Shown here is a 73-nucleotide sequence from Aminobacter sp. J15, a member of the family "tRNA".
RNA sequence: GAUCGCGUAGCUCAGCCGGUAGAGCAACUGACUUUUAAUCAGUAGGUCCUGGGUUCGAGCCCCAGCGCGAUCA
Numbered sequence: 001g002a003u004c005g006c007g008u009a010g011c012u013c014a015g016c017c018g019g020u021a022g023a024g025c026a027a028c029u030g031a032c033u034u035u036u037a038a039u040c041a042g043u044a045g046g047u048c049c050u051g052g053g054u055u056c057g058a059g060c061c062c063c064a065g066c067g068c069g070a071u072c073a
Stems, first nucleotide, its partner, number of pairs: 001072007010025004027043005049065005